[Rfam]
RNA sequence: CCGGUCGUUCCGUCGACCGUAGCCUGCCUGUCCAUGCGUUGCUGGCAACGGCUUCGUGUGAAGCCACGGGAACAAAGUGUCGGGCCCUUGGGCCACGUCGCGUUCCGCGAGGAAACGGCGUCACCUGCGAGCCUCAAUGCGGGUAGGAUG
Numbered sequence: 001c002c003g004g005u006c007g008u009u010c011c012g013u014c015g016a017c018c019g020u021a022g023c024c025u026g027c028c029u030g031u032c033c034a035u036g037c038g039u040u041g042c043u044g045g046c047a048a049c050g051g052c053u054u055c056g057u058g059u060g061a062a063g064c065c066a067c068g069g070g071a072a073c074a075a076a077g078u079g080u081c082g083g084g085c086c087c088u089u090g091g092g093c094c095a096c097g098u099c100g101c102g103u104u105c106c107g108c109g110a111g112g113a114a115a116c117g118g119c120g121u122c123a124c125c126u127g128c129g130a131g132c133c134u135c136a137a138u139g140c141g142g143g144u145a146g147g148a149u150g
Stems, first nucleotide, its partner, number of pairs: 002019006028069004033060006041052004083094004096120004105112002124143006